This 56-nucleotide sequence from Gillisella ampelina belongs to the Rfam family "COG3860 RNA". By type it is a cis-regulatory element. It is one of the family's seed sequences.

[Rfam]
RNA sequence: GGGUCCGCAGUUCACCCAGACAUCACCGCUCCUGCAAAGGAGAGCUAAACCUGCAU
Numbered sequence: 001g002g003g004u005c006c007g008c009a010g011u012u013c014a015c016c017c018a019g020a021c022a023u024c025a026c027c028g029c030u031c032c033u034g035c036a037a038a039g040g041a042g043a044g045c046u047a048a049a050c051c052u053g054c055a056u
Base pairs, nucleotide, nucleotide: 001017002016003015004014029042030041031040032039